[Rfam]
RNA sequence: AUUGCGGACCGGGCCCCUCUGGCGCGCGCUCUCAUUUGGCGCUCGUGAUGUCGGACCGCAUCG
Numbered sequence: 001a002u003u004g005c006g007g008a009c010c011g012g013g014c015c016c017c018u019c020u021g022g023c024g025c026g027c028g029c030u031c032u033c034a035u036u037u038g039g040c041g042c043u044c045g046u047g048a049u050g051u052c053g054g055a056c057c058g059c060a061u062c063g
Stems, first nucleotide, its partner, number of pairs: 006057002009054004022046003026042004
Rfam assigns this 63-nucleotide RNA from Aurantiacibacter zhengii to the family "terC RNA". The match comes from Rfam's covariance-model search (62 bits).